[Rfam]
RNA sequence: CAACAGCACGGCCUGUAUUCCAAAUACGUUUAAGAAUGACGGCAAACGGCCUGGACGAUCAGCGAUCUUCAUCAAUACUCAUGUGUACUGGUGUGUGACGUACCCCCCAAGCGUCCCGCCAGGCAAGGUACCGUGGACCGCGUGCCUUGAUUUACUCCUAAUGGUCUUAACCCGGCUCCCCCCCAGAGUCCGG
Numbered sequence: 001c002a003a004c005a006g007c008a009c010g011g012c013c014u015g016u017a018u019u020c021c022a023a024a025u026a027c028g029u030u031u032a033a034g035a036a037u038g039a040c041g042g043c044a045a046a047c048g049g050c051c052u053g054g055a056c057g058a059u060c061a062g063c064g065a066u067c068u069u070c071a072u073c074a075a076u077a078c079u080c081a082u083g084u085g086u087a088c089u090g091g092u093g094u095g096u097g098a099c100g101u102a103c104c105c106c107c108c109a110a111g112c113g114u115c116c117c118g119c120c121a122g123g124c125a126a127g128g129u130a131c132c133g134u135g136g137a138c139c140g141c142g143u144g145c146c147u148u149g150a151u152u153u154a155c156u157c158c159u160a161a162u163g164g165u166c167u168u169a170a171c172c173c174g175g176c177u178c179c180c181c182c183c184c185a186g187a188g189u190c191c192g193g
Base pairs, nucleotide, nucleotide: 038166039165040164043163044162088122089121090120094118095117097115099113100112101111124149125148126147127146128145129144130143131142132140172193173192174191175190176188177187178186
The record is a 193-nucleotide sequence from Pseudomonas guineae, which matches "RgsA sRNA" in Rfam. The literature on the family includes a 2006 paper in Nucleic Acids Res by Livny et al., "Identification of 17 Pseudomonas aeruginosa sRNAs and prediction of sRNA-encoding genes in 10 diverse pathogens using the bioinformatic tool sRNAPredict2". Gene Ontology terms of the family: response to oxidative stress, sRNA-mediated gene silencing and response to hydrogen peroxide. From the family's description: This small RNA (sRNA) was computationally identified in the genome of the opportunistic pathogen Pseudomonas aeruginosa and its expression verified by northern blot analysis. P16 sRNA appears to be conserved across several Pseudomonas species and Azotobacter vinelandii. The match comes from Rfam's covariance-model search (143 bits). The source organism's lineage runs through Bacteria, Pseudomonadati, Pseudomonadota, Gammaproteobacteria and Pseudomonas.